[Rfam]
RNA: RNase MRP
RNA sequence: UUGUACAUCAACAAGAAUUGCUUCGAAGUAUACAAAUGGAUCGCUGUUGAAAGCGAUAGUGUGAACGUCGGUGCACACACGAUCCAGCAUACCAUCCCAAACCACUGCAACCUCUGUAACAGCUGCUUGGCAGAGAAAGAGAAGAACGACGUCGACGGCCAAGUUGUGGUGGGGUAUCAGUUGGACGCACCGAGCACAUCAAUAUUCUCACUUUGGGGAAAGUCCCCGGACCCUAGGAUAGAAAGUAUCGCCUGUCAAAAGGUACGAACGGACCAACGUGUAGACCUGGCUGAGAAGACAUCCCUGAUCGGUUUGUUGGAGCUCCUGCACAGUCUGAUUCCUCUGGUCGAAGCUUAGGUAGAUGCAAUUAGUAUCAUCCACUCGAUGGUAUACGACCUUAAUGGGGCUCACUCCUUGAUGUACC
Numbered sequence: 001u002u003g004u005a006c007a008u009c010a011a012c013a014a015g016a017a018u019u020g021c022u023u024c025g026a027a028g029u030a031u032a033c034a035a036a037u038g039g040a041u042c043g044c045u046g047u048u049g050a051a052a053g054c055g056a057u058a059g060u061g062u063g064a065a066c067g068u069c070g071g072u073g074c075a076c077a078c079a080c081g082a083u084c085c086a087g088c089a090u091a092c093c094a095u096c097c098c099a100a101a102c103c104a105c106u107g108c109a110a111c112c113u114c115u116g117u118a119a120c121a122g123c124u125g126c127u128u129g130g131c132a133g134a135g136a137a138a139g140a141g142a143a144g145a146a147c148g149a150c151g152u153c154g155a156c157g158g159c160c161a162a163g164u165u166g167u168g169g170u171g172g173g174g175u176a177u178c179a180g181u182u183g184g185a186c187g188c189a190c191c192g193a194g195c196a197c198a199u200c201a202a203u204a205u206u207c208u209c210a211c212u213u214u215g216g217g218g219a220a221a222g223u224c225c226c227c228g229g230a231c232c233c234u235a236g237g238a239u240a241g242a243a244a245g246u247a248u249c250g251c252c253u254g255u256c257a258a259a260a261g262g263u264a265c266g267a268a269c270g271g272a273c274c275a276a277c278g279u280g281u282a283g284a285c286c287u288g289g290c291u292g293a294g295a296a297g298a299c300a301u302c303c304c305u306g307a308u309c310g311g312u313u314u315g316u317u318g319g320a321g322c323u324c325c326u327g328c329a330c331a332g333u334c335u336g337a338u339u340c341c342u343c344u345g346g347u348c349g350a351a352g353c354u355u356a357g358g359u360a361g362a363u364g365c366a367a368u369u370a371g372u373a374u375c376a377u378c379c380a381c382u383c384g385a386u387g388g389u390a391u392a393c394g395a396c397c398u399u400a401a402u403g404g405g406g407c408u409c410a411c412u413c414c415u416u417g418a419u420g421u422a423c424c
Stems, first nucleotide, its partner, number of pairs: 003423009016369006023216007039200003221408002224406004237249004252262002266340003269336005278330004288323003307317001309315002371393004